RNA: Streptomyces-metH RNA
Organism: Streptomyces scabiei
RNA sequence: CCCGUCCGCCCCGUGGACCGCCCUGACCAUCCGGGGCUCUCCGGGCUACCCUUGCGGCGUGCGGCCUCCCCGGGAGGCCGCAAAGCCGACAGCCGUCGCACUCCAGGGAGCAGCUCCAUG
Number, nucleotide and partner (000 for none) at each position: 001c000002c000003c000004g000005u000006c000007c000008g000009c000010c000011c000012c000013g000014u000015g000016g000017a000018c000019c000020g000021c000022c000023c000024u000025g000026a000027c000028c000029a000030u000031c000032c000033g000034g000035g000036g000037c000038u000039c000040u000041c000042c000043g000044g000045g000046c000047u000048a000049c000050c000051c000052u000053u000054g000055c000056g000057g000058c000059g000060u082061g081062c080063g079064g000065c077066c076067u075068c074069c000070c000071c000072g000073g000074g068075a067076g066077g065078c000079c063080g062081c061082a060083a000084a000085g099086c098087c000088g097089a096090c095091a000092g000093c000094c000095g090096u089097c088098g086099c085100a000101c000102u000103c000104c000105a000106g000107g000108g000109a000110g000111c000112a000113g000114c000115u000116c000117c000118a000119u000120g000